[Rfam]
RNA: mir-255 microRNA precursor family
Organism: Caenorhabditis remanei
RNA sequence: GUAAGAAAUCUUUGUGGUUUUCCGUGUUUAAACGCGAAAACUGAAGAGAUUUUUUACAG
Numbered sequence: 001g002u003a004a005g006a007a008a009u010c011u012u013u014g015u016g017g018u019u020u021u022c023c024g025u026g027u028u029u030a031a032a033c034g035c036g037a038a039a040a041c042u043g044a045a046g047a048g049a050u051u052u053u054u055u056a057c058a059g
Base pairs, nucleotide, nucleotide: 001057002056003055004054005053006052007051008050009049010048011047012046013045015043016042017041018040019039020038021037022036023034024033025032